This 411-nucleotide sequence from Felis catus belongs to the Rfam family "Small Cajal body-specific RNA 2". A search with the family's covariance model found it, with a score of 382 bits. Its family is annotated with RNA processing and nucleolus in the Gene Ontology. It is annotated as a small Cajal body RNA. The family has 20 seed sequences and 612 matches in Rfam 15.1.
RNA sequence: UCUUUCCGGAGGGAGAGCGGCCUAGGGCGAGGUGGUUUGUGUGGUGCUUUGGUGUUGAAUGGAAGGCGCGUAUGGGCUGAGUGUGAGUGGGUGCGCGACUGUGAGUGUGCGCGUGGGGCAUGCAAGGCGAGUGUGUGCGCCCGUCCCUGAGCCACUCUCCCCCGCCUACACCUUGAUCUUAUUUGAUCGGGUUGUGACCCUUGCCCCGCGGGGCCGACCCGAUAUGAAAAGCUCCCCUCCUGCGAAGCCCCCUCCUCUGGGGCGCUGUGCAGCGAGGCCCCUUUGGCGGCGGCGACGCUGCGGCCCCGGAGCCGGUCUUACGGGGCCCGGCGCUCAGAAAUGAUGAAUUGAUCAGAUAGACGAGGCCGGGCUAGUCCCGGGCCACUGAUUAUCGAGGCGAUUCUGAUCUGA
Numbered sequence: 001u002c003u004u005u006c007c008g009g010a011g012g013g014a015g016a017g018c019g020g021c022c023u024a025g026g027g028c029g030a031g032g033u034g035g036u037u038u039g040u041g042u043g044g045u046g047c048u049u050u051g052g053u054g055u056u057g058a059a060u061g062g063a064a065g066g067c068g069c070g071u072a073u074g075g076g077c078u079g080a081g082u083g084u085g086a087g088u089g090g091g092u093g094c095g096c097g098a099c100u101g102u103g104a105g106u107g108u109g110c111g112c113g114u115g116g117g118g119c120a121u122g123c124a125a126g127g128c129g130a131g132u133g134u135g136u137g138c139g140c141c142c143g144u145c146c147c148u149g150a151g152c153c154a155c156u157c158u159c160c161c162c163c164g165c166c167u168a169c170a171c172c173u174u175g176a177u178c179u180u181a182u183u184u185g186a187u188c189g190g191g192u193u194g195u196g197a198c199c200c201u202u203g204c205c206c207c208g209c210g211g212g213g214c215c216g217a218c219c220c221g222a223u224a225u226g227a228a229a230a231g232c233u234c235c236c237c238u239c240c241u242g243c244g245a246a247g248c249c250c251c252c253u254c255c256u257c258u259g260g261g262g263c264g265c266u267g268u269g270c271a272g273c274g275a276g277g278c279c280c281c282u283u284u285g286g287c288g289g290c291g292g293c294g295a296c297g298c299u300g301c302g303g304c305c306c307c308g309g310a311g312c313c314g315g316u317c318u319u320a321c322g323g324g325g326c327c328c329g330g331c332g333c334u335c336a337g338a339a340a341u342g343a344u345g346a347a348u349u350g351a352u353c354a355g356a357u358a359g360a361c362g363a364g365g366c367c368g369g370g371c372u373a374g375u376c377c378c379g380g381g382c383c384a385c386u387g388a389u390u391a392u393c394g395a396g397g398c399g400a401u402u403c404u405g406a407u408c409u410g411a
Stems, first nucleotide, its partner, number of pairs: 051153003055149001056072002060068002089102001093100001105140003108135005114129002182230003187222004192217003196214001199213003203209002256310003260307003264304003269301002272298003277293003280289002311331005316325003335410004345403006364383004369378002